[Rfam]
RNA sequence: UGUUGGCAAGGGCAAACCCGUCCGAAAGGCGGGGGCGCAAAGCCACGGGUCUACGGACGAAAGUCUAUGGCAGCCGGGCUGCCGGA
Numbered sequence: 001u002g003u004u005g006g007c008a009a010g011g012g013c014a015a016a017c018c019c020g021u022c023c024g025a026a027a028g029g030c031g032g033g034g035g036c037g038c039a040a041a042g043c044c045a046c047g048g049g050u051c052u053a054c055g056g057a058c059g060a061a062a063g064u065c066u067a068u069g070g071c072a073g074c075c076g077g078g079c080u081g082c083c084g085g086a
Base pairs, nucleotide, nucleotide: 012038013037017033018032019031020030022029023028041080042079043078044077046076047075048074049071050070051069056065057064058063
The family of this 86-nucleotide sequence from Alicyclobacillus acidocaldarius is "c-di-GMP-I riboswitch aptamer". The source organism's lineage runs through Bacteria, Bacillati, Bacilli, Alicyclobacillus and Alicyclobacillus acidocaldarius subsp. acidocaldarius. Its family is annotated with cyclic-di-GMP binding in the Gene Ontology. The match comes from Rfam's covariance-model search (77 bits).